[Rfam]
A member of the RNA family "Eukaryotic large subunit ribosomal RNA" from Oryctes borbonicus, 526 nucleotides of a longer RNA. A search with the family's covariance model found it, with a score of 2976 bits. The base pairs follow the family's consensus structure, which is taken from published work. Its family is annotated with ribosome and structural constituent of ribosome in the Gene Ontology.
RNA sequence: CCCUCCGAAGUUUCCCUCAGGAUAGCUGGCGCUCGCUUCUCGCGAGUCUCAUUCGGUAAAGCGAAUGAUUAGAGGCAUUGGGGUCGAAACGGCCUCAACCUAUUCUCAAACUUUAAAUGGGUGAGAUCUCCGGCUUGCUUGAACUGUGAAGCCGCGAGAUAUCGGAUCAGAGUGCCAAGUGGGCCACUUUUGGUAAGCAGAACUGGCGCUGUGGGAUGAACCAAACGCCGAGUUAAAGCGCCUAAAUCGACGCUUAUGGGAUACCAUGAAAGGCGUUGGUAACUUAAGACAGCAGGACGGUGGCCAUGGAAGUCGGAAUCCGCCAAGGAGUGUGUAACAACUCACCUGCCGAAGUUACUAGCCCUGAAAAUGGAUGGCGCUGAAGCGUCGUGCUUAUACUCUGCCGUCAGAGGCAUGUGAGACGGUCCUUCGCGGUCGUCAUGAAGCCCUGACGAGUAGGAGGGUCGCGGCGGUGAGCGCAGAAGGACCAGGCGCGAGCCAGUCUGGAGCCGCCGUCGGUGCAGAU
Numbered sequence: 001c002c003c004u005c006c007g008a009a010g011u012u013u014c015c016c017u018c019a020g021g022a023u024a025g026c027u028g029g030c031g032c033u034c035g036c037u038u039c040u041c042g043c044g045a046g047u048c049u050c051a052u053u054c055g056g057u058a059a060a061g062c063g064a065a066u067g068a069u070u071a072g073a074g075g076c077a078u079u080g081g082g083g084u085c086g087a088a089a090c091g092g093c094c095u096c097a098a099c100c101u102a103u104u105c106u107c108a109a110a111c112u113u114u115a116a117a118u119g120g121g122u123g124a125g126a127u128c129u130c131c132g133g134c135u136u137g138c139u140u141g142a143a144c145u146g147u148g149a150a151g152c153c154g155c156g157a158g159a160u161a162u163c164g165g166a167u168c169a170g171a172g173u174g175c176c177a178a179g180u181g182g183g184c185c186a187c188u189u190u191u192g193g194u195a196a197g198c199a200g201a202a203c204u205g206g207c208g209c210u211g212u213g214g215g216a217u218g219a220a221c222c223a224a225a226c227g228c229c230g231a232g233u234u235a236a237a238g239c240g241c242c243u244a245a246a247u248c249g250a251c252g253c254u255u256a257u258g259g260g261a262u263a264c265c266a267u268g269a270a271a272g273g274c275g276u277u278g279g280u281a282a283c284u285u286a287a288g289a290c291a292g293c294a295g296g297a298c299g300g301u302g303g304c305c306a307u308g309g310a311a312g313u314c315g316g317a318a319u320c321c322g323c324c325a326a327g328g329a330g331u332g333u334g335u336a337a338c339a340a341c342u343c344a345c346c347u348g349c350c351g352a353a354g355u356u357a358c359u360a361g362c363c364c365u366g367a368a369a370a371u372g373g374a375u376g377g378c379g380c381u382g383a384a385g386c387g388u389c390g391u392g393c394u395u396a397u398a399c400u401c402u403g404c405c406g407u408c409a410g411a412g413g414c415a416u417g418u419g420a421g422a423c424g425g426u427c428c429u430u431c432g433c434g435g436u437c438g439u440c441a442u443g444a445a446g447c448c449c450u451g452a453c454g455a456g457u458a459g460g461a462g463g464g465u466c467g468c469g470g471c472g473g474u475g476a477g478c479g480c481a482g483a484a485g486g487a488c489c490a491g492g493c494g495c496g497a498g499c500c501a502g503u504c505u506g507g508a509g510c511c512g513c514c515g516u517c518g519g520u521g522c523a524g525a526u
Stems, first nucleotide, its partner, number of pairs: 001464006011024001013022003027177007047126008059114001060112002066108003071103001073101003078098006085091001128158003131154006183207004188202005212223003227404002230401002233398001237394003246391001248390001251387003271365003275362010292349005298322003304316002323327001328343001332341002405454006412448003466521001468518008477510002485505002491500003